[Rfam]
Bacteroidales small SRP: a 104-nucleotide RNA from Portibacter lacus.
RNA sequence: UGCCGUCGGUGAGGGUCAUACGGUCAGCUCCUUCUGAACUCCCCCAGGGUAGAAAUACAGCAAGGGUAGGAGGUUGAGCGACGUCGGUAUGUUUCCUCACUUUU
Numbered sequence: 001u002g003c004c005g006u007c008g009g010u011g012a013g014g015g016u017c018a019u020a021c022g023g024u025c026a027g028c029u030c031c032u033u034c035u036g037a038a039c040u041c042c043c044c045c046a047g048g049g050u051a052g053a054a055a056u057a058c059a060g061c062a063a064g065g066g067u068a069g070g071a072g073g074u075u076g077a078g079c080g081a082c083g084u085c086g087g088u089a090u091g092u093u094u095c096c097u098c099a100c101u102u103u104u
Stems, first nucleotide, its partner, number of pairs: 008101007017091004021086002023082002
Dot-bracket structure: .......(((((((..((((((((........................................................))..)).))))...)))))))...

A reference for the family is Ryan et al. (2020), "A high-resolution transcriptome map identifies small RNA regulation of metabolism in the gut microbe Bacteroides thetaiotaomicron", Nat Commun.